RNA sequence: GUUGCGGCAUUCGGGAUCUUUAGUUGUGGUAUGCGAACUCUUAGUUGCAGCAUGUGGGAUCUAGUUCCCUGUCCAG
Numbered sequence: 001g002u003u004g005c006g007g008c009a010u011u012c013g014g015g016a017u018c019u020u021u022a023g024u025u026g027u028g029g030u031a032u033g034c035g036a037a038c039u040c041u042u043a044g045u046u047g048c049a050g051c052a053u054g055u056g057g058g059a060u061c062u063a064g065u066u067c068c069c070u071g072u073c074c075a076g
Base pairs, nucleotide, nucleotide: 001073004072005071006070007069014062015061016060017059018058020057021056022055025052026051027050032049033048034047035046036045